[Rfam]
RNA sequence: UGGAGGAACAACCAUGGUGGUGGCGGCCAGCUCUGGAGCCCUGGAUUCAGCUCCCGCAGUAACUAGGGAGUUCUCCAUCUGCAGGGCCUGGAUGCUCCGGAGACGG
Number, nucleotide and partner (000 for none) at each position: 001u000002g098003g097004a096005g095006g000007a093008a000009c090010a089011a000012c086013c085014a000015u000016g000017g000018u000019g079020g078021u077022g076023g075024c000025g074026g073027c000028c000029a072030g071031c070032u069033c068034u067035g000036g000037a064038g000039c000040c000041c059042u058043g057044g000045a000046u000047u000048c000049a000050g000051c000052u000053c000054c000055c000056g000057c043058a042059g041060u000061a000062a000063c000064u037065a000066g000067g034068g033069a032070g031071u030072u029073c026074u025075c023076c022077a021078u020079c019080u000081g000082c000083a000084g000085g013086g012087c000088c000089u010090g009091g000092a000093u007094g000095c005096u004097c003098c002099g000100g000101a000102g000103a000104c000105g000106g000